[Rfam]
RNA sequence: AGACGGGUCGUGUCAACCGGACGCGACGGAGAUGAAGAACACGGGGAUUUUUCCGGUUUCUCCCCGUGGCCAACGAAACGGCAGGCGAGCUUCCCACCCGUCCGACCC
Numbered sequence: 001a002g003a004c005g006g007g008u009c010g011u012g013u014c015a016a017c018c019g020g021a022c023g024c025g026a027c028g029g030a031g032a033u034g035a036a037g038a039a040c041a042c043g044g045g046g047a048u049u050u051u052u053c054c055g056g057u058u059u060c061u062c063c064c065c066g067u068g069g070c071c072a073a074c075g076a077a078a079c080g081g082c083a084g085g086c087g088a089g090c091u092u093c094c095c096a097c098c099c100g101u102c103c104g105a106c107c108c
Stems, first nucleotide, its partner, number of pairs: 006107004011023004025102005034093004040068007069082003